[Rfam]
RNA sequence: AGCCUUAUUCUACACAAGAAUGGGCACUAUUGUUCAUAGUGUCCAAAAAUUGUUAAUGUAGCUAAAUUGAGACCCAGGUUAUGCUUCCAUCAUGGUAUAUGUAUUACACUGGUGUCAAUGAGACCUAUAACAUUU
Numbered sequence: 001a002g003c004c005u006u007a008u009u010c011u012a013c014a015c016a017a018g019a020a021u022g023g024g025c026a027c028u029a030u031u032g033u034u035c036a037u038a039g040u041g042u043c044c045a046a047a048a049a050u051u052g053u054u055a056a057u058g059u060a061g062c063u064a065a066a067u068u069g070a071g072a073c074c075c076a077g078g079u080u081a082u083g084c085u086u087c088c089a090u091c092a093u094g095g096u097a098u099a100u101g102u103a104u105u106a107c108a109c110u111g112g113u114g115u116c117a118a119u120g121a122g123a124c125c126u127a128u129a130a131c132a133u134u135u
Stems, first nucleotide, its partner, number of pairs: 002062002006058003021045007076126003088114005
RNA: Small nucleolar RNA SNORA1